[Rfam]
RNA: 6S / SsrS RNA
RNA sequence: CACUACCGGGGGUGUUCGUUAUUAGUUACGUCCCUGAGCCGAUAAUUGAAAACUUUGAGUUGAACAUCUAAUCGCUGGUGAGCAAGCUUACCUUGAGUAAGAAGCCUAAAAGCUAUUAAGCUUAACUCCCUUGAACCAUUUGGUUCAAGGGCCUUCACUGAUAACGGCACUCCGGGUAUCUU
Numbered sequence: 001c002a003c004u005a006c007c008g009g010g011g012g013u014g015u016u017c018g019u020u021a022u023u024a025g026u027u028a029c030g031u032c033c034c035u036g037a038g039c040c041g042a043u044a045a046u047u048g049a050a051a052a053c054u055u056u057g058a059g060u061u062g063a064a065c066a067u068c069u070a071a072u073c074g075c076u077g078g079u080g081a082g083c084a085a086g087c088u089u090a091c092c093u094u095g096a097g098u099a100a101g102a103a104g105c106c107u108a109a110a111a112g113c114u115a116u117u118a119a120g121c122u123u124a125a126c127u128c129c130c131u132u133g134a135a136c137c138a139u140u141u142g143g144u145u146c147a148a149g150g151g152c153c154u155u156c157a158c159u160g161a162u163a164a165c166g167g168c169a170c171u172c173c174g175g176g177u178a179u180c181u182u
Stems, first nucleotide, its partner, number of pairs: 004178004009173007017166003030152004035147006057128003061124003065120001070117003074113003082105002087101005